[Rfam]
RNA sequence: CGAUCAUCCAGAGGAUCCGAGGGACCUGGCCCGGUGACGGUCCGGCAACCUCCCCGUAGCGGGGAAAGGUGCCAACGCCAGGAGCGAUGAGGA
Number, nucleotide and partner (000 for none) at each position: 001c000002g000003a000004u090005c089006a088007u087008c086009c000010a000011g000012a000013g043014g042015a041016u040017c039018c000019g000020a000021g032022g031023g030024a000025c000026c081027u080028g079029g078030c023031c022032c021033g000034g000035u000036g000037a000038c000039g017040g016041u015042c014043c013044g073045g072046c071047a070048a000049c069050c068051u065052c064053c063054c062055c000056g000057u000058a000059g000060c000061g000062g054063g053064g052065a051066a000067a000068g050069g049070u047071g046072c045073c044074a000075a000076c000077g085078c029079c028080a027081g026082g000083a000084g000085c077086g008087a007088u006089g005090a004091g000092g000093a000
RNA: SAM riboswitch aptamer (S box leader)
Organism: Sphaerisporangium rufum